[Rfam]
RNA sequence: CUGCAGUGCAUUGUAGUUGCAUUGCAUGUAUGUUUCUCAAAGUGCAAUGUACCUGCAGUGCAACACAG
Numbered sequence: 001c002u003g004c005a006g007u008g009c010a011u012u013g014u015a016g017u018u019g020c021a022u023u024g025c026a027u028g029u030a031u032g033u034u035u036c037u038c039a040a041a042g043u044g045c046a047a048u049g050u051a052c053c054u055g056c057a058g059u060g061c062a063a064c065a066c067a068g
Stems, first nucleotide, its partner, number of pairs: 001068003006064001007062010019050001021048007